[Rfam]
RNA sequence: AACAACUAAAAAUGAUUUGCAGAUAUAUCGCUGGAUAAUGGCCAGCAGUCUCUACCGCACACCUAUGUCGUGACUAUCCGCAAGUGCCAAUUUUUU
Numbered sequence: 001a002a003c004a005a006c007u008a009a010a011a012a013u014g015a016u017u018u019g020c021a022g023a024u025a026u027a028u029c030g031c032u033g034g035a036u037a038a039u040g041g042c043c044a045g046c047a048g049u050c051u052c053u054a055c056c057g058c059a060c061a062c063c064u065a066u067g068u069c070g071u072g073a074c075u076a077u078c079c080g081c082a083a084g085u086g087c088c089a090a091u092u093u094u095u096u
Stems, first nucleotide, its partner, number of pairs: 018082003022078004030046005056072003059068003
Dot-bracket structure: .................(((.((((....(((((.......))))).........((((((....))).)))..)))).)))..............